[Rfam]
Record summary
Rfam assigns this 192-nucleotide RNA sequence to the family "U2 spliceosomal RNA". The sequence is in the family's curated seed alignment. The family has 208 seed sequences and 71,512 matches in Rfam 15.1. By type it is a spliceosomal small nuclear RNA. Its Rfam clan is "U2 clan".

RNA sequence: AUCGCUUCUCGGCCUUUUGGCUAAGAUCAUGUGUAGUAUCUGUUCUUUUCAGCUUAAUAUCUGAAACGCGACUCACCGAGUCGCUUGUAUAUUAAACUGAUUUUUGAACUUAGGCCAUGGAAUAGGGGCUUGCUCCGUCCUGGCCACGGGUUGGCCCGGUAUUGCAGUACCUCCGGGAUCGGCCCACCCCUC
Number, nucleotide and partner (000 for none) at each position: 001a000002u000003c000004g000005c000006u000007u026008c025009u024010c000011g022012g021013c020014c019015u000016u000017u000018u000019g014020g013021c012022u011023a000024a009025g008026a007027u000028c000029a000030u000031g000032u000033g000034u000035a000036g000037u000038a000039u000040c000041u000042g000043u000044u000045c000046u000047u066048u065049u064050c063051a062052g061053c000054u000055u000056a000057a000058u000059a000060u000061c052062u051063g050064a049065a048066a047067c000068g084069c083070g082071a081072c080073u079074c078075a000076c000077c000078g074079a073080g072081u071082c070083g069084c068085u000086u000087g000088u000089a000090u000091a000092u000093u000094a000095a000096a000097c000098u000099g000100a000101u000102u000103u000104u000105u000106g000107a000108a000109c000110u000111u000112a000113g145114g144115c143116c142117a141118u000119g139120g138121a000122a000123u000124a000125g136126g135127g134128g133129c000130u000131u000132g000133c128134u127135c126136c125137g000138u120139c119140c000141u117142g116143g115144c114145c113146a000147c000148g185149g184150g183151u182152u181153g180154g000155c177156c176157c175158g174159g173160u000161a000162u000163u000164g000165c000166a000167g000168u000169a000170c000171c000172u000173c159174c158175g157176g156177g155178a000179u000180c153181g152182g151183c150184c149185c148186a000187c000188c000189c000190c000191u000192c000